[Rfam]
RNA: permuted transfer-messenger RNA
RNA sequence: CGUUGUAUAUCCUCUGAAUCGGAAACGUGUCUAAAUGGGGUUCGAUUCCCCACACUUCCACCAAGAAACGCUUUAGAUGAGGCGUUUGUUGAUGGGGGUGACCUGGAUUCGAAGACGGGCGGAAGUGCAGGCGGCAACGCGGGUUGGGACUACCCGGCAAGGCUUAGGUCUUGUAGAACAGAACGACAUGACAAUUGCCAAUGAAAGCAAUUUCCGCCUCGCUGCUUAA
Dot-bracket structure: (((((........(((.........(.(.(((...(((((.......)))))(((((((..................................)))))))............))).).)........)))....)))))((((.........)))).........................................................................